[Rfam]
RNA sequence: UUUAGGCGAAGAAGCAGGAAGUUGCUGAGCUAUCAGGUAAUUUCUGUGGAGAAGUCCCUACAUGAUCGGGGGCGA
Numbered sequence: 001u002u003u004a005g006g007c008g009a010a011g012a013a014g015c016a017g018g019a020a021g022u023u024g025c026u027g028a029g030c031u032a033u034c035a036g037g038u039a040a041u042u043u044c045u046g047u048g049g050a051g052a053a054g055u056c057c058c059u060a061c062a063u064g065a066u067c068g069g070g071g072g073c074g075a
Stems, first nucleotide, its partner, number of pairs: 014047003018044004025036004054073006
RNA: S10-Clostridia ribosomal protein leader
Organism: Clostridiales bacterium S5-A14a